RNA sequence: CUUUCCACUACAAGCCUCGCGACUAAUGAGAACAUUGAUAUUCAAAUGAUCAAUGCUCUCAUUAGCCGCGCGAAUCGGUUGCAGCCAAAGAGGCAUUAGCUAAAACAAUAAAUUACGACCCAUAGCUUAACAUUUUAGUUAAGUAUAAUUCGAGUAUUACUUCAACUUUAAAAUAACGUUUAGAAGAAAAGGGGCCAUUUGGCCCCUUUCC
Numbered sequence: 001c002u003u004u005c006c007a008c009u010a011c012a013a014g015c016c017u018c019g020c021g022a023c024u025a026a027u028g029a030g031a032a033c034a035u036u037g038a039u040a041u042u043c044a045a046a047u048g049a050u051c052a053a054u055g056c057u058c059u060c061a062u063u064a065g066c067c068g069c070g071c072g073a074a075u076c077g078g079u080u081g082c083a084g085c086c087a088a089a090g091a092g093g094c095a096u097u098a099g100c101u102a103a104a105a106c107a108a109u110a111a112a113u114u115a116c117g118a119c120c121c122a123u124a125g126c127u128u129a130a131c132a133u134u135u136u137a138g139u140u141a142a143g144u145a146u147a148a149u150u151c152g153a154g155u156a157u158u159a160c161u162u163c164a165a166c167u168u169u170a171a172a173a174u175a176a177c178g179u180u181u182a183g184a185a186g187a188a189a190a191g192g193g194g195c196c197a198u199u200u201g202g203c204c205c206c207u208u209u210c211c
Stems, first nucleotide, its partner, number of pairs: 001090004011081002018072004023065007097165001191206006